A member of the RNA family "Small nucleolar RNA SNORD83" from Tupaia belangeri, 76 nucleotides long. The family has 7 seed sequences and 1,393 matches in Rfam 15.1. Rfam links the family to the GO terms RNA processing and nucleolus. Rfam classes the family as a C/D-box small nucleolar RNA. Lineage of the source: Eukaryota > Opisthokonta > Mammalia > Tupaia > Tupaia belangeri.
RNA sequence: GCCACAUGUUUUCAUUUUGAGCAGUGAAUGCUUUGUGCAGUGAUGACUUUAACCUAAUCACCCUUAACUGAAGGCU
Numbered sequence: 001g002c003c004a005c006a007u008g009u010u011u012u013c014a015u016u017u018u019g020a021g022c023a024g025u026g027a028a029u030g031c032u033u034u035g036u037g038c039a040g041u042g043a044u045g046a047c048u049u050u051a052a053c054c055u056a057a058u059c060a061c062c063c064u065u066a067a068c069u070g071a072a073g074g075c076u
Stems, first nucleotide, its partner, number of pairs: 001075003029037003